[Rfam]
RNA sequence: CAAACCUGCUCUGAGGCCAGAGCAGAAGCACUCAUGGCACAGCCCUGUCAGAUUUCAAUGAAAAUCAGCGAAUUCUACU
Numbered sequence: 001c002a003a004a005c006c007u008g009c010u011c012u013g014a015g016g017c018c019a020g021a022g023c024a025g026a027a028g029c030a031c032u033c034a035u036g037g038c039a040c041a042g043c044c045c046u047g048u049c050a051g052a053u054u055u056c057a058a059u060g061a062a063a064a065u066c067a068g069c070g071a072a073u074u075c076u077a078c079u
Stems, first nucleotide, its partner, number of pairs: 013045001015044003021079002024076004028040001049068001051066005

Record summary: A member of the RNA family "Mammalian CPEB3 ribozyme" from Alligator mississippiensis, 79 nucleotides long. The source organism's lineage runs through Eukaryota, Eumetazoa, Deuterostomia, Amniota and Alligator. A search with the family's covariance model found it, with a score of 36 bits. Rfam's curators write: The mammalian CPEB3 ribozyme is a self cleaving RNA located in the second intron of the CPEB3 gene which belongs to a family of genes regulating messenger RNA polyadenylation. This ribozyme is highly conserved and found only in mammals. The CPEB3 ribozyme is structurally and biochemically related to the human hepatitis delta virus (HDV) ribozyme and the HDV ribozyme is proposed to have arisen from the human transcriptome.